[Rfam]
The record is a 35-nucleotide sequence, which matches "DUF805b RNA" in Rfam.
The family's RNA type in Rfam is cis-regulatory element.
RNA sequence: AACCAGGAUACCGAAAAUGGUGAAAAGAGUAGGUA
Dot-bracket structure: .((((....[[[.....))))..........]]].

Its Rfam clan is "DUF805 clan". The family's consensus secondary structure is taken from published work. The sequence is in the family's curated seed alignment.